[Rfam]
RNA: Guanidine-I riboswitch aptamer
RNA sequence: UUAAAAGUUUUCUAGGGUUCCGCAACUAUAAGUGUUGGACUGGUCCGAGAGAAAACUCACAGCUUGCUGUGCCACGGAAGGAUAAAAGCCUGGGAGGA
Numbered sequence: 001u002u003a004a005a006a007g008u009u010u011u012c013u014a015g016g017g018u019u020c021c022g023c024a025a026c027u028a029u030a031a032g033u034g035u036u037g038g039a040c041u042g043g044u045c046c047g048a049g050a051g052a053a054a055a056c057u058c059a060c061a062g063c064u065u066g067c068u069g070u071g072c073c074a075c076g077g078a079a080g081g082a083u084a085a086a087a088g089c090c091u092g093g094g095a096g097g098a
Base pairs, nucleotide, nucleotide: 007056008055009054010053011052012051015046016045020043021042022040023037024036025035026034058071059070060069061068062067073093075096079091080090081089